This 107-nucleotide RNA from Variovorax sp. PBS-H4 belongs to the Rfam family "SAH (S-adenosyl-L-homocysteine) riboswitch aptamer". On this family, see Wang et al., Mol Cell 2008: "Riboswitches that sense S-adenosylhomocysteine and activate genes involved in coenzyme recycling". The match comes from Rfam's covariance-model search (48 bits).
[Rfam]
RNA sequence: CCUACCGAGGAGCGCUGCAACGAUCGCACUCGCCAAUGCGCGCGAGGCCGGUCUGUCAGGCUCGGAAGGCUGCCAACGACCGGCGGCUGCAACUGCGCUCACCGACA
Numbered sequence: 001c002c003u004a005c006c007g008a009g010g011a012g013c014g015c016u017g018c019a020a021c022g023a024u025c026g027c028a029c030u031c032g033c034c035a036a037u038g039c040g041c042g043c044g045a046g047g048c049c050g051g052u053c054u055g056u057c058a059g060g061c062u063c064g065g066a067a068g069g070c071u072g073c074c075a076a077c078g079a080c081c082g083g084c085g086g087c088u089g090c091a092a093c094u095g096c097g098c099u100c101a102c103c104g105a106c107a
Stems, first nucleotide, its partner, number of pairs: 002068002005065004021055001022053005

Its family is annotated with regulation of gene expression and S-adenosylhomocysteine metabolic process in the Gene Ontology.
The organism belongs to Variovorax, within Bacteria.
Pairs were carried over by alignment from the consensus structure, which is taken from published work.